A member of the RNA family "mir-7563 microRNA precursor family" from Ameiurus melas, 82 nucleotides long. Gene Ontology terms of the family: miRNA-mediated post-transcriptional gene silencing and RISC complex.
RNA sequence: ACCGCGUACUUACCUACUGUAUAGUAGCCGAGAUACAUGUAUUUCGCCUGCUAUAGGCCUAUAGUAGGCAAGUACGUGGUUU
Numbered sequence: 001a002c003c004g005c006g007u008a009c010u011u012a013c014c015u016a017c018u019g020u021a022u023a024g025u026a027g028c029c030g031a032g033a034u035a036c037a038u039g040u041a042u043u044u045c046g047c048c049u050g051c052u053a054u055a056g057g058c059c060u061a062u063a064g065u066a067g068g069c070a071a072g073u074a075c076g077u078g079g080u081u082u
Base pairs, nucleotide, nucleotide: 001080002079003078004077005076006075007074008073009072010071011070013068014067015066017064018063019062020055021054022053023052024051025050026049027048029046030045031044033042034041035040